Rfam assigns this 409-nucleotide RNA sequence from Allobranchiibius huperziae to the family "Bacterial RNase P class A". The family's consensus secondary structure is taken from published work. By type it is a ribozyme. The organism belongs to Allobranchiibius, within Bacteria.
[Rfam]
RNA sequence: CGAGCUGGCCAGGCGGCCGCGUCGAGCACCCGCAAGGACUGCUCGCCGAGGAACGUCCGGACUCCACAGGGCAGGGUGAUGGCUAACGGCCACCCGGGGUGACCCGCGGGAAAGUGCCACAGAAAACAGACCGCCGUCUGCGGCGCGGCAGGGCUUCGGCCCGGCCGCGGCGUGGCGGUAAGGGUGAAACGGUGGUGUAAGAGACCACCAGCGUGCCGGGUGACCGGUGCGGCUCGGUAAACCCCACCCGGAGCAAGACCAGACAGCAUGCGUUCGAGGGCGGCCCGCCCGAGCAUGCGGGUAGGUCGCUCGAGGCCGUCGGCAACGACGGCCCUAGAUGGAUGGUCGCCACGGCGCCGCCGGUAACAGCGGCGCCGGACAGAAUCCGGCGUACCGGCCAGCUCGUCCA
Numbered sequence: 001c002g003a004g005c006u007g008g009c010c011a012g013g014c015g016g017c018c019g020c021g022u023c024g025a026g027c028a029c030c031c032g033c034a035a036g037g038a039c040u041g042c043u044c045g046c047c048g049a050g051g052a053a054c055g056u057c058c059g060g061a062c063u064c065c066a067c068a069g070g071g072c073a074g075g076g077u078g079a080u081g082g083c084u085a086a087c088g089g090c091c092a093c094c095c096g097g098g099g100u101g102a103c104c105c106g107c108g109g110g111a112a113a114g115u116g117c118c119a120c121a122g123a124a125a126a127c128a129g130a131c132c133g134c135c136g137u138c139u140g141c142g143g144c145g146c147g148g149c150a151g152g153g154c155u156u157c158g159g160c161c162c163g164g165c166c167g168c169g170g171c172g173u174g175g176c177g178g179u180a181a182g183g184g185u186g187a188a189a190c191g192g193u194g195g196u197g198u199a200a201g202a203g204a205c206c207a208c209c210a211g212c213g214u215g216c217c218g219g220g221u222g223a224c225c226g227g228u229g230c231g232g233c234u235c236g237g238u239a240a241a242c243c244c245c246a247c248c249c250g251g252a253g254c255a256a257g258a259c260c261a262g263a264c265a266g267c268a269u270g271c272g273u274u275c276g277a278g279g280g281c282g283g284c285c286c287g288c289c290c291g292a293g294c295a296u297g298c299g300g301g302u303a304g305g306u307c308g309c310u311c312g313a314g315g316c317c318g319u320c321g322g323c324a325a326c327g328a329c330g331g332c333c334c335u336a337g338a339u340g341g342a343u344g345g346u347c348g349c350c351a352c353g354g355c356g357c358c359g360c361c362g363g364u365a366a367c368a369g370c371g372g373c374g375c376c377g378g379a380c381a382g383a384a385u386c387c388g389g390c391g392u393a394c395c396g397g398c399c400a401g402c403u404c405g406u407c408c409a
Stems, first nucleotide, its partner, number of pairs: 001405010012350007020048002023045006053392003057389005062253004069286004074249005080092004094108001095106004109244002114242002116238003131183002133179006191209006211233001212231008257307004266298006278290004314333008